[Rfam]
RNA: mir-1285 microRNA precursor family
RNA sequence: ACAUGGUUUCACCAUGUUGCCCAGGCUGGUCUUGAACUUCUGAGCUCAAGUGAUCCAGAGCUCAGAAGUUCAAGACCAGCCUGGGCAACAUGGUGAAACCCCAU
Numbered sequence: 001a002c003a004u005g006g007u008u009u010c011a012c013c014a015u016g017u018u019g020c021c022c023a024g025g026c027u028g029g030u031c032u033u034g035a036a037c038u039u040c041u042g043a044g045c046u047c048a049a050g051u052g053a054u055c056c057a058g059a060g061c062u063c064a065g066a067a068g069u070u071c072a073a074g075a076c077c078a079g080c081c082u083g084g085g086c087a088a089c090a091u092g093g094u095g096a097a098a099c100c101c102c103a104u
Stems, first nucleotide, its partner, number of pairs: 007098008019086007032079003